[Rfam]
RNA sequence: UGGUGAUGAUGUAUAAUCUCACGAUGGUCUGCAGAGCCCUCGAGUGAACAGGGCAUUGCUGAAAACGCCAGUCUGGCACUCACUGAACCAAAGAG
Numbered sequence: 001u002g003g004u005g006a007u008g009a010u011g012u013a014u015a016a017u018c019u020c021a022c023g024a025u026g027g028u029c030u031g032c033a034g035a036g037c038c039c040u041c042g043a044g045u046g047a048a049c050a051g052g053g054c055a056u057u058g059c060u061g062a063a064a065a066c067g068c069c070a071g072u073c074u075g076g077c078a079c080u081c082a083c084u085g086a087a088c089c090a091a092a093g094a095g
Stems, first nucleotide, its partner, number of pairs: 001090004

Small nucleolar RNA SNORD35: a 95-nucleotide RNA sequence from Ophiophagus hannah. U35 is a C/D box snoRNA located in intron 6 of ribosomal protein L13A and intron 3 of ribosomal protein S11 in humans and at homologous positions in mouse and chicken ribosomal protein genes. U35 guides the methylation of 2'-O-ribose sites in 28S rRNA. NCBI's taxonomy places the organism under Eukaryota, Euteleostomi, Sarcopterygii, Episquamata, Ophiophagus. It is annotated as a C/D-box small nucleolar RNA. The family's consensus secondary structure was predicted with PFOLD. A search with the family's covariance model found it, with a score of 59 bits.